[Rfam]
Rfam assigns this 253-nucleotide RNA from Paenibacillus albidus to the family "BsrG".
RNA sequence: AGCAAUAGAAUAGGCUUAAAAGGGUCGGUCGGCUACCUCUCUAUAGAAGGGAGGGAUGCCUUGUGACAGUGUUCGAAGCAAUGAUGGUUAUGUUAACCUUUGGUUCGCUAAUCGUAGCGCUGCUGUCCAAUAAACGCAAAUAGACCGCCCCCACGCAAAGGAAUGCGGUCUAUUUGUCGUAGCUCCUGCUUGUGAAGCCAACCGCCCUUAAAAGCGGCUAUUGUGCACUGGGAGUCGUGUUGGAGCACGGCUC
Numbered sequence: 001a002g003c004a005a006u007a008g009a010a011u012a013g014g015c016u017u018a019a020a021a022g023g024g025u026c027g028g029u030c031g032g033c034u035a036c037c038u039c040u041c042u043a044u045a046g047a048a049g050g051g052a053g054g055g056a057u058g059c060c061u062u063g064u065g066a067c068a069g070u071g072u073u074c075g076a077a078g079c080a081a082u083g084a085u086g087g088u089u090a091u092g093u094u095a096a097c098c099u100u101u102g103g104u105u106c107g108c109u110a111a112u113c114g115u116a117g118c119g120c121u122g123c124u125g126u127c128c129a130a131u132a133a134a135c136g137c138a139a140a141u142a143g144a145c146c147g148c149c150c151c152c153a154c155g156c157a158a159a160g161g162a163a164u165g166c167g168g169u170c171u172a173u174u175u176g177u178c179g180u181a182g183c184u185c186c187u188g189c190u191u192g193u194g195a196a197g198c199c200a201a202c203c204g205c206c207c208u209u210a211a212a213a214g215c216g217g218c219u220a221u222u223g224u225g226c227a228c229u230g231g232g233a234g235u236c237g238u239g240u241u242g243g244a245g246c247a248c249g250g251c252u253c
Stems, first nucleotide, its partner, number of pairs: 002226003007221001009219001013199005022150003028145003036055002039053004065127007078093003103118003160177001162175001202217004232253009

The family has 6 seed sequences and 614 matches in Rfam 15.1.